[Rfam]
The record is a 67-nucleotide RNA from Rattus norvegicus, which matches "mir-505 microRNA precursor family" in Rfam. Rfam links the family to the GO terms RISC complex and miRNA-mediated post-transcriptional gene silencing. Rfam's curators put it in the seed alignment.

RNA sequence: AGUGGGGGAGCCAGGAAGUAUUGAUGUUUCUGCCAGGUUAGCGUCAACACUUGCUGGUUUCCUCUCU
Numbered sequence: 001a002g003u004g005g006g007g008g009a010g011c012c013a014g015g016a017a018g019u020a021u022u023g024a025u026g027u028u029u030c031u032g033c034c035a036g037g038u039u040a041g042c043g044u045c046a047a048c049a050c051u052u053g054c055u056g057g058u059u060u061c062c063u064c065u066c067u
Base pairs, nucleotide, nucleotide: 001067002066004064005063006062007061008060009059010058011057012056013055014054016052017051018050019049021047022046023045024044025043026042027041028040
A reference for the family is Zhou et al. (2009), "In silico detection and characteristics of novel microRNA genes in the Equus caballus genome using an integrated ab initio and comparative genomic approach", Genomics. The base pairs follow the family's consensus structure, which was predicted with RNAalifold. Taxonomically the source falls in Rattus (Eukaryota, Bilateria, Chordata, Glires).